[Rfam]
RNA: 6S / SsrS RNA
RNA sequence: GAUUUGCUACGGCGUUGGUGACUGCCAAUAAUGUUUUAUGAUCUACAAAUCAACAUAAACGGGAGUCGUGAUGUUCCAGUGGCAGUAAACCGGGCUUGUACCCGGAAACUUAAAACUGGAGCCGAGAUUUCCACCUGGAAUUUUCCAGGUCAAAAGCUGAGGUAAGACGGCGCUGCGGUGGAUCC
Number, nucleotide and partner (000 for none) at each position: 001g000002a183003u182004u181005u180006g179007c178008u177009a000010c175011g174012g173013c172014g171015u170016u000017g000018g168019u167020g000021a000022c000023u000024g000025c000026c000027a000028a000029u000030a000031a000032u000033g000034u000035u156036u155037u154038a000039u152040g151041a150042u149043c148044u147045a000046c000047a000048a000049a000050u000051c000052a000053a000054c000055a000056u000057a000058a000059a000060c000061g132062g131063g130064a000065g128066u127067c126068g000069u124070g123071a000072u000073g000074u121075u120076c119077c118078a117079g116080u115081g000082g000083c000084a000085g109086u108087a000088a000089a000090c105091c104092g103093g102094g101095c000096u000097u000098g000099u000100a000101c094102c093103c092104g091105g090106a000107a000108a086109c085110u000111u000112a000113a000114a000115a080116c079117u078118g077119g076120a075121g074122c000123c070124g069125a000126g067127a066128u065129u000130u063131c062132c061133a000134c000135c000136u000137g000138g000139a000140a000141u000142u000143u000144u000145c000146c000147a044148g043149g042150u041151c040152a039153a000154a037155a036156g035157c000158u000159g000160a000161g000162g000163u000164a000165a000166g000167a019168c018169g000170g015171c014172g013173c012174u011175g010176c000177g008178g007179u006180g005181g004182a003183u002184c000185c000